RNA sequence: CAGGCUCCGGUUCACGCCGACAUCCGACGGCGACCCGGCGGCC
Numbered sequence: 001c002a003g004g005c006u007c008c009g010g011u012u013c014a015c016g017c018c019g020a021c022a023u024c025c026g027a028c029g030g031c032g033a034c035c036c037g038g039c040g041g042c043c
Stems, first nucleotide, its partner, number of pairs: 003043003007038004015032005

The record is a 43-nucleotide RNA sequence, which matches "L31-Actinobacteria ribosomal protein leader" in Rfam.
Rfam's curators put it in the seed alignment.
Pairs were carried over by alignment from the consensus structure, which is taken from published work.
The literature on the family includes a 2020 paper in BMC Microbiol by Eckert and Weinberg, "Discovery of 20 novel ribosomal leader candidates in bacteria and archaea".
The family is grouped with related families in Rfam's "Ribosomal Protein L31 Leader clan".